RNA sequence: AGAAGUAGGCGAGGCGGCUGCGGAUUCGGCGGCGAUGCUGACUGAAUUCGAGGAAAGUCCGGGCUUCCGAAAGACCACACUUGCUGGGUAACGCCCAGUGCGCGUGAGCGUGAGGAUAGUGCCACAGAAAAAUACCGCCCUGGCCCUUCGGGGUUUCGGUGUGGUGGGUCAGGCUCCUGGAGCCGAACCGCUGUCCCUGGAAUCUGUGAGUGAAGGGCUGGGGUAAGGGUGCAAAGGUGCGGUAAGAGCGCACCAGCAGUAUCGAGAGGUGCUGGCUCGGUAAACCCCGGUGGGACGCAAGGUCGGAGGAACUAGGGUUGGUCUUUUUCCCGUUCCGUACAGGGUCAAUCUUCGGGUUGGCGCUGCGGUGUACCGCUAGAGGUGUCUGGUAACAGGCAUUCGAGAUAGAUAGCUGCCCCUAAGUCUGGAGACAGAUGAGGGAACAGAACCCGGCUUAUGUCCAACUUCUUCGU
Numbered sequence: 001a002g003a004a005g006u007a008g009g010c011g012a013g014g015c016g017g018c019u020g021c022g023g024a025u026u027c028g029g030c031g032g033c034g035a036u037g038c039u040g041a042c043u044g045a046a047u048u049c050g051a052g053g054a055a056a057g058u059c060c061g062g063g064c065u066u067c068c069g070a071a072a073g074a075c076c077a078c079a080c081u082u083g084c085u086g087g088g089u090a091a092c093g094c095c096c097a098g099u100g101c102g103c104g105u106g107a108g109c110g111u112g113a114g115g116a117u118a119g120u121g122c123c124a125c126a127g128a129a130a131a132a133u134a135c136c137g138c139c140c141u142g143g144c145c146c147u148u149c150g151g152g153g154u155u156u157c158g159g160u161g162u163g164g165u166g167g168g169u170c171a172g173g174c175u176c177c178u179g180g181a182g183c184c185g186a187a188c189c190g191c192u193g194u195c196c197c198u199g200g201a202a203u204c205u206g207u208g209a210g211u212g213a214a215g216g217g218c219u220g221g222g223g224u225a226a227g228g229g230u231g232c233a234a235a236g237g238u239g240c241g242g243u244a245a246g247a248g249c250g251c252a253c254c255a256g257c258a259g260u261a262u263c264g265a266g267a268g269g270u271g272c273u274g275g276c277u278c279g280g281u282a283a284a285c286c287c288c289g290g291u292g293g294g295a296c297g298c299a300a301g302g303u304c305g306g307a308g309g310a311a312c313u314a315g316g317g318u319u320g321g322u323c324u325u326u327u328u329c330c331c332g333u334u335c336c337g338u339a340c341a342g343g344g345u346c347a348a349u350c351u352u353c354g355g356g357u358u359g360g361c362g363c364u365g366c367g368g369u370g371u372a373c374c375g376c377u378a379g380a381g382g383u384g385u386c387u388g389g390u391a392a393c394a395g396g397c398a399u400u401c402g403a404g405a406u407a408g409a410u411a412g413c414u415g416c417c418c419c420u421a422a423g424u425c426u427g428g429a430g431a432c433a434g435a436u437g438a439g440g441g442a443a444c445a446g447a448a449c450c451c452g453g454c455u456u457a458u459g460u461c462c463a464a465c466u467u468c469u470u471c472g473u
Base pairs, nucleotide, nucleotide: 001469002468003467004466005465006464008462009461011458013417014416015415016414017413018412019411021050022049023048024047025046026045027044028043029042055456056455057454059453060452061451062450063449064297066295067294078292079291080290082289083288084098085097086096087095088094099113100111101110102109103108114287115286119285120284121281122280123279135228136227137224138223139222140221141220142219143218144217145216146215147214148213149212150211236254237253238252239251240250241249256276257274258273259272260271261270262269263268301374302373304367305366307364308363346360348358350356381400382399383398384397385396386395387394388393
The record is a 473-nucleotide RNA from Prochlorothrix hollandica, which matches "Bacterial RNase P class A" in Rfam. Its family is annotated with ribonuclease P activity, tRNA processing and dimeric ribonuclease P complex in the Gene Ontology. Rfam classes the family as a ribozyme.